[Rfam]
RNA: Histone 3' UTR stem-loop
RNA sequence: CCAAAGGCUCUUUUAAGAGCCACAGCACAGAGCGUCUUUGGCUUUGU
Numbered sequence: 001c002c003a004a005a006g007g008c009u010c011u012u013u014u015a016a017g018a019g020c021c022a023c024a025g026c027a028c029a030g031a032g033c034g035u036c037u038u039u040g041g042c043u044u045u046g047u
Stems, first nucleotide, its partner, number of pairs: 006021006